[Rfam]
RNA sequence: AGUCAAGCGUCUUAGGCACCAAAUUGGUGGAUGGUUUUCUUUUGCCUGAACGAAGGUGAAGGCAAA
Numbered sequence: 001a002g003u004c005a006a007g008c009g010u011c012u013u014a015g016g017c018a019c020c021a022a023a024u025u026g027g028u029g030g031a032u033g034g035u036u037u038u039c040u041u042u043u044g045c046c047u048g049a050a051c052g053a054a055g056g057u058g059a060a061g062g063c064a065a066a
Base pairs, nucleotide, nucleotide: 009063010062011061012060013059017058018057019056020055024053025052026051028049030047032044033043034042
RNA: S-element
Organism: Rhizobium johnstonii